[Rfam]
Nucleotides: 071
Stems, first nucleotide, its partner, number of pairs: 010063006017056002021052004027047004
Number, partner (000 for none) and nucleotide at each position: 001000u002000g003000g004000a005000g006000g007000g008000a009000u010063u011062c012061c013060c014059u015058u016000u017056g018055u019000c020000a021052u022051c023050c024049u025000a026000u027047g028046c029045c030044u031000g032000u033000a034000a035000u036000c037000g038000c039000c040000u041000c042000u043000a044030a045029g046028g047027c048000a049024a050023g051022g052021a053000c054000a055018g056017c057000a058015a059014a060013g061012g062011g063010g064000a065000c066000c067000c068000c069000u070000g071000u
Shown here is a 71-nucleotide RNA sequence from Petromyzon marinus, a member of the family "mir-204 microRNA precursor family". The source organism's lineage runs through Eukaryota, Craniata, Cyclostomata, Petromyzontiformes and Petromyzon. The base pairs follow the family's consensus structure, which was predicted with RNAalifold. Rfam's curators put it in the seed alignment. Rfam links the family to the GO terms RISC complex and miRNA-mediated post-transcriptional gene silencing. The literature on the family includes a 2005 paper in Genes Dev by Chen et al., "The developmental miRNA profiles of zebrafish as determined by small RNA cloning".